[Rfam]
Shown here is a 173-nucleotide RNA sequence from Enterococcus asini, a member of the family "M-box riboswitch aptamer (ykoK leader)". A search with the family's covariance model found it, with a score of 115 bits. Lineage of the source: Bacteria > Bacilli > Enterococcaceae > Enterococcus > Enterococcus asini. M-box riboswitch, also know as ykoK leader is described as a metaloregulatory RNA that sense divalent metals and function as a genetic control element of genes related to divalent metal transport in bacteria. It was first reported upstream of the B.subtilis ykoK gene and genes with related functions in other bacteria.

RNA sequence: GUAAAUAAUUGUUAGGUGAGGCUCCUAUAUGGACACAGGCUGCUGCCGCGAAAGAAUCGAGAGACUCUUAGUUUGGUAGAACAGGAUUGAUCGUGAAGGUCAAUCACAACGCAGCUGACUAGUUUUCGCUAGUCUACGCCCUAUAGUGCUAAAGCUCUACGAUGACCAACGUA
Numbered sequence: 001g002u003a004a005a006u007a008a009u010u011g012u013u014a015g016g017u018g019a020g021g022c023u024c025c026u027a028u029a030u031g032g033a034c035a036c037a038g039g040c041u042g043c044u045g046c047c048g049c050g051a052a053a054g055a056a057u058c059g060a061g062a063g064a065c066u067c068u069u070a071g072u073u074u075g076g077u078a079g080a081a082c083a084g085g086a087u088u089g090a091u092c093g094u095g096a097a098g099g100u101c102a103a104u105c106a107c108a109a110c111g112c113a114g115c116u117g118a119c120u121a122g123u124u125u126u127c128g129c130u131a132g133u134c135u136a137c138g139c140c141c142u143a144u145a146g147u148g149c150u151a152a153a154g155c156u157c158u159a160c161g162a163u164g165a166c167c168a169a170c171g172u173a
Stems, first nucleotide, its partner, number of pairs: 006168001009165002011160002013097001015156003020150003025146005031140002039115005045077004055066001057064002085105003090100003117134005